Shown here is a 108-nucleotide RNA from Neorhizobium galegae, a member of the family "Alphaproteobacterial ar15". A search with the family's covariance model found it, with a score of 82 bits. For this family Rfam cites "A survey of sRNA families in alpha-proteobacteria" (del Val et al., RNA Biol, 2012).
RNA sequence: AGCCGGCGCGCGCUGACGACCUCCUGGUUGUCUGUGUUGGCUGUUCCCCUCUGGAGGUUUUGACCUUCACAAUUAUUGGGCCUCGGAGCGAUCCGGCGGCCCAUUUUU
Numbered sequence: 001a002g003c004c005g006g007c008g009c010g011c012g013c014u015g016a017c018g019a020c021c022u023c024c025u026g027g028u029u030g031u032c033u034g035u036g037u038u039g040g041c042u043g044u045u046c047c048c049c050u051c052u053g054g055a056g057g058u059u060u061u062g063a064c065c066u067u068c069a070c071a072a073u074u075a076u077u078g079g080g081c082c083u084c085g086g087a088g089c090g091a092u093c094c095g096g097c098g099g100c101c102c103a104u105u106u107u108u
Base pairs, nucleotide, nucleotide: 001042002041003040004039005038007036008035009034015032016031017030018029052069053068054067055066056065057064058063077103078102079101080100081099082098083096084095085094086093